RNA sequence: AGUCAAAAGCUCAAGGCCAUAGCAGAAAAGCUUAUGAUAUGGCCCUGUCAGGUUCCAGUGAAUCUGUGAAUUCAGCU
Dot-bracket structure: ..............[[[[..(((.((((.(.......).)]]]]....(((((((....)))))))....))).)))
This 77-nucleotide sequence from Crocodylus porosus belongs to the Rfam family "Mammalian CPEB3 ribozyme". Its family is annotated with RNA nuclease activity in the Gene Ontology. Pairs were carried over by alignment from the consensus structure, which is taken from published work. The match comes from Rfam's covariance-model search (46 bits).